Shown here is an 83-nucleotide RNA from Brevibacillus centrosporus, a member of the family "skipping-rope RNA".

RNA sequence: GAUCGCUGAGGUGGGAAAGGUUCCCCACGCGCCUGUCAUUCGGCAGGUUAAAAGAGAUCAGGAUACGCCGCCCUGCUGUGAUC
Numbered sequence: 001g002a003u004c005g006c007u008g009a010g011g012u013g014g015g016a017a018a019g020g021u022u023c024c025c026c027a028c029g030c031g032c033c034u035g036u037c038a039u040u041c042g043g044c045a046g047g048u049u050a051a052a053a054g055a056g057a058u059c060a061g062g063a064u065a066c067g068c069c070g071c072c073c074u075g076c077u078g079u080g081a082u083c
Base pairs, nucleotide, nucleotide: 001083002082003081004080005079006078008076011028012027013026014025015024019069020068021067030054031048032047033046034045035044036043037042059075060074061073062072
NCBI's taxonomy places the organism under Bacteria, Bacillati, Bacilli, Caryophanales, Brevibacillus.